[Rfam]
RNA: MIR8008 microRNA precursor family
Organism: Solanum tuberosum
RNA sequence: AAACCUAGAAAAGCGACGGACAGGGUCCUUUAGUUCAUCACUUUUCUAGAUUUUU
Number, nucleotide and partner (000 for none) at each position: 001a053002a052003a051004c000005c049006u048007a047008g046009a045010a044011a043012a042013g041014c000015g039016a038017c000018g036019g035020a034021c033022a000023g000024g000025g000026u000027c000028c000029u000030u000031u000032a000033g021034u020035u019036c018037a000038u016039c015040a000041c013042u012043u011044u010045u009046c008047u007048a006049g005050a000051u003052u002053u001054u000055u000